Nucleotides: 594
Base pairs, nucleotide, nucleotide: 008588009587010586011585012584013583014582015581016580022574023539024538027510028509029507030506031505032504033503034502035501036499037498038159039158046107047106048105049062050061051060068101069100070099071098072097073096074095077089078088079087112121113120114119122141123140124139125138126137127136128135143156144155145154146153147152163194164192165191166190167189168188174181175180204211205210214495215242216241217240218239219238225233226232245492246491247490248489253291254290255289256288257287258286259285260284261283262282263281298434299433300432303428304427305426306425307424341417343415344414345413346412347411348410349409350408351407352406354402355401356400360375361374362373363372364371378382384396385395386394440464441463442462443461444460445459446458447457471486472485473484474483475482526533527532549560550559551558552557
Number, partner (000 for none) and nucleotide at each position: 001000u002000a003000c004000a005000g006000a007000a008588g009587g010586c011585g012584c013583a014582c015581g016580g017000u018000g019000g020000a021000u022574g023539c024538c025000u026000a027510g028509g029507c030506a031505g032504c033503a034502g035501g036499a037498g038159g039158c040000g041000a042000a043000g044000a045000a046107g047106g048105g049062c050061g051060u052000g053000g054000c055000a056000a057000g058000c059000u060051g061050c062049g063000a064000a065000a066000a067000g068101c069100c070099a071098c072097g073096g074095g075000g076000a077089g078088g079087u080000g081000c082000a083000a084000a085000c086000g087079a088078c089077c090000g091000u092000u093000g094000a095074u096073c097072c098071g099070u100069g101068g102000a103000u104000g105048c106047c107046c108000g109000a110000a111000u112121g113120g114119g115000g116000a117000a118000a119114c120113c121112c122141a123140c124139c125138u126137a127136c128135c129000u130000g131000a132000g133000a134000g135128g136127g137126u138125a139124g140123g141122u142000a143156u144155c145154u146153c147152c148000g149000a150000a151000a152147g153146g154145a155144g156143a157000g158039g159038c160000g161000a162000a163194c164192c165191c166190g167189g168188u169000g170000a171000a172000g173000u174181g175180a176000a177000a178000c179000a180175u181174c182000u183000c184000a185000g186000u187000a188168a189167c190166c191165g192164g193000a194163g195000g196000a197000a198000a199000a200000g201000a202000a203000a204211u205210c206000a207000a208000c209000c210205g211204a212000g213000a214495u215242u216241c217240c218239c219238u220000g221000a222000g223000u224000a225233g226232c227000g228000g229000c230000g231000a232226g233225c234000g235000a236000a237000a238219g239218g240217g241216g242215a243000g244000g245492a246491g247490c248489c249000u250000a251000a252000a253291c254290c255289g256288u257287g258286g259285u260284a261283g262282u263281g264000u265000a266000g267000a268000a269000g270000c271000c272000u273000g274000c275000g276000g277000g278000c279000g280000u281263u282262g283261c284260u285259a286258c287257c288256a289255c290254g291253g292000g293000g294000u295000a296000g297000a298434g299433g300432g301000a302000c303428g304427c305426a306425a307424c308000u309000g310000g311000g312000c313000g314000a315000g316000g317000c318000c319000g320000c321000a322000g323000a324000c325000u326000c327000g328000c329000c330000g331000g332000g333000g334000a335000g336000u337000u338000a339000c340000a341417a342000a343415c344414c345413u346412u347411g348410c349409a350408u351407c352406u353000a354402g355401c356400u357000g358000a359000a360375g361374g362373g363372u364371c365000u366000g367000g368000g369000a370000a371364g372363g373362c374361c375360c376000a377000c378382c379000g380000g381000a382378g383000a384396g385395g386394g387000u388000g389000a390000a391000a392000g393000u394386c395385c396384c397000g398000u399000a400356g401355g402354c403000g404000a405000a406352a407351g408350g409349u410348g411347c412346g413345a414344g415343g416000c417341u418000c419000c420000c421000u422000g423000g424307g425306u426305u427304g428303u429000g430000a431000u432300c433299c434298c435000g436000a437000g438000u439000a440464c441463c442462a443461c444460g445459g446458g447457g448000c449000a450000c451000g452000a453000g454000g455000a456000a457447u458446c459445c460444c461443g462442u463441g464440g465000g466000a467000a468000u469000c470000a471486g472485g473484g474483g475482g476000g477000a478000c479000c480000a481000c482475c483474c484473u485472c486471c487000a488000a489248g490247g491246c492245u493000a494000a495214a496000u497000a498037c499036u500000c501035c502034c503033u504032g505031c506030u507029g508000a509028c510027c511000g512000a513000u514000a515000g516000c517000g518000c519000a520000a521000a522000a523000g524000u525000a526533c527532c528000g529000u530000g531000a532527g533526g534000g535000a536000a537000a538024g539023g540000u541000g542000a543000a544000a545000a546000g547000c548000a549560c550559c551558c552557c553000g554000g555000g556000a557552g558551g559550g560549g561000a562000g563000u564000g565000a566000a567000a568000g569000a570000g571000g572000a573000c574022c575000u576000g577000a578000a579000a580016c581015c582014g583013u584012g585011u586010g587009c588008c589000g590000a591000c592000a593000a594000g
Notes: A member of the RNA family "Bacterial large subunit ribosomal RNA" from Kosmotoga olearia, 594 nucleotides of a longer RNA. The family is grouped with related families in Rfam's "LSU clan". The organism belongs to Kosmotoga olearia, within Bacteria. Rfam's curators put it in the seed alignment.